Notes
Bacterial large signal recognition particle RNA: a 262-nucleotide sequence from Herbinix hemicellulosilytica. For this family Rfam cites "SRPDB: Signal Recognition Particle Database" (Rosenblad et al., Nucleic Acids Res, 2003). The signal recognition particle (SRP) is a universally conserved ribonucleoprotein involved in the co-translational targeting of proteins to membranes. It is annotated as a non-coding RNA gene. The family's consensus secondary structure is taken from published work.
Nucleotides: 262
Base pairs, nucleotide, nucleotide: 001262002261003260004259005258006257007256008056009055010054011029012028013027014026016024018022033053034052035051036050037049061255062254063253064252065251066250070246071245072244073243074242076241077240078239079238080237081236082235083234084233085232089227090226093224094223095222096221097220098219101217102216103214104213105212112208113207114206115205116204117203118202119201120197121196122195123194124193125192126188127187129186130185131184132183133182135178136177137176138175139174145170146169147168148167153162154161155160
Number, partner (000 for none) and nucleotide at each position: 001262c002261c003260g004259u005258g006257c007256a008056g009055c010054c011029g012028g013027g014026g015000a016024g017000a018022u019000a020000g021000c022018g023000g024016u025000g026014c027013c028012c029011u030000g031000u032000a033053c034052c035051u036050g037049c038000a039000a040000u041000c042000c043000g044000c045000u046000a047000c048000a049037g050036c051035a052034g053033g054010g055009g056008u057000g058000a059000u060000a061255u062254u063253c064252u065251g066250c067000c068000u069000a070246g071245g072244g073243u074242g075000a076241c077240u078239u079238a080237u081236u082235g083234u084233a085232g086000g087000g088000c089227u090226g091000c092000c093224c094223u095222c096221u097220a098219u099000a100000a101217g102216u103214g104213a105212u106000g107000u108000u109000g110000a111000c112208g113207u114206u115205c116204g117203g118202g119201u120197c121196u122195u123194a124193c125192g126188c127187a128000a129186c130185a131184g132183g133182a134000c135178u136177u137176u138175g139174u140000g141000a142000a143000c144000c145170g146169u147168g148167u149000c150000a151000g152000g153162u154161c155160a156000g157000g158000a159000a160155u161154g162153a163000a164000g165000c166000a167148g168147c169146a170145c171000u172000a173000a174139g175138c176137a177136a178135a179000a180000g181000c182133u183132c184131c185130u186129g187127u188126g189000u190000g191000c192125c193124g194123u195122a196121a197120g198000g199000c200000a201119g202118c203117c204116u205115g206114g207113a208112c209000c210000g211000a212105g213104u214103c215000a216102a217101c218000u219098g220097u221096a222095g223094a224093g225000g226090u227089a228000a229000c230000g231000c232085c233084u234083a235082u236081g237080g238079u239078a240077a241076g242074c243073a244072u245071u246070c247000g248000a249000a250066g251065c252064a253063g254062a255061a256007u257006g258005c259004a260003c261002g262001g